Rfam assigns this 105-nucleotide RNA sequence from Streptomyces sp. MS191 to the family "ZMP/ZTP riboswitch aptamer (pfl RNA motif)". The match comes from Rfam's covariance-model search (46 bits). Lineage of the source: Bacteria > Bacillati > Actinomycetes > Kitasatosporales > Streptomyces. The family's consensus secondary structure is taken from published work.
[Rfam]
RNA sequence: UGCGCGGGCCGUGACUGGCGCUUGAGGUGGAUCACCACCGGGGAGCGGCCCCGUGGACACCGCGCACCCGCGCGGACCGCGCUGCCGUGCGCCUGGGCGAACACC
Numbered sequence: 001u002g003c004g005c006g007g008g009c010c011g012u013g014a015c016u017g018g019c020g021c022u023u024g025a026g027g028u029g030g031a032u033c034a035c036c037a038c039c040g041g042g043g044a045g046c047g048g049c050c051c052c053g054u055g056g057a058c059a060c061c062g063c064g065c066a067c068c069c070g071c072g073c074g075g076a077c078c079g080c081g082c083u084g085c086c087g088u089g090c091g092c093c094u095g096g097g098c099g100a101a102c103a104c105c
Stems, first nucleotide, its partner, number of pairs: 006051007015042002017093005027038004083099004